This 139-nucleotide RNA from Picathartes gymnocephalus belongs to the Rfam family "Small Cajal body specific RNA 11". By type it is a small Cajal body RNA. The literature on the family includes a 2002 paper in EMBO J by Darzacq et al., "Cajal body-specific small nuclear RNAs: a novel class of 2'-O-methylation and pseudouridylation guide RNAs". Rfam 15.1 lists 853 matches to the family in 557 species. It scores 62 bits against the family's covariance model. About the family: scaRNAs are a specific class of small nuclear RNAs which localise to the Cajal bodies and guide the modification of RNA polymerase II transcribed spliceosomal RNAs U1, U2, U4, U5 and U12. ACA57 belongs to the H/ACA box class of guide RNAs as it has the predicted hairpin-hinge-hairpin-tail structure, conserved H/ACA-box motifs and is found associated with GAR1.
RNA sequence: GCGUCCUGACCUUACCCUGGCUGCUCCCCUCACCAGAACUGUGGUGGUGGGGUCUGGGGGUGGACGCAGAUCAGCUUACUCUCAUGUUAGGAGGGCUGCCAAAGACAUGUGCACGCCCUUAAAGGCAAGAGAGGACACU
Numbered sequence: 001g002c003g004u005c006c007u008g009a010c011c012u013u014a015c016c017c018u019g020g021c022u023g024c025u026c027c028c029c030u031c032a033c034c035a036g037a038a039c040u041g042u043g044g045u046g047g048u049g050g051g052g053u054c055u056g057g058g059g060g061u062g063g064a065c066g067c068a069g070a071u072c073a074g075c076u077u078a079c080u081c082u083c084a085u086g087u088u089a090g091g092a093g094g095g096c097u098g099c100c101a102a103a104g105a106c107a108u109g110u111g112c113a114c115g116c117c118c119u120u121a122a123a124g125g126c127a128a129g130a131g132a133g134g135a136c137a138c139u
Stems, first nucleotide, its partner, number of pairs: 002066005010059002023053003028049001030047004079133005087124002091120006098112002100109002